[Rfam]
RNA sequence: GAGGGUUCGGCUCAACCCCCCGGAGUCGGACCCACGACGACCCCCGCCUCCCCCCGGCGGGGGUCGUCCCUU
Numbered sequence: 001g002a003g004g005g006u007u008c009g010g011c012u013c014a015a016c017c018c019c020c021c022g023g024a025g026u027c028g029g030a031c032c033c034a035c036g037a038c039g040a041c042c043c044c045c046g047c048c049u050c051c052c053c054c055c056g057g058c059g060g061g062g063g064u065c066g067u068c069c070c071u072u
Base pairs, nucleotide, nucleotide: 004032005031006030007029008028009027010026011025012024013023036068037067038066039065040064041063042062043061044060045059046058047057048056

Background
This 72-nucleotide sequence from Planosporangium flavigriseum belongs to the Rfam family "6C RNA". Its family is annotated with sporulation in the Gene Ontology.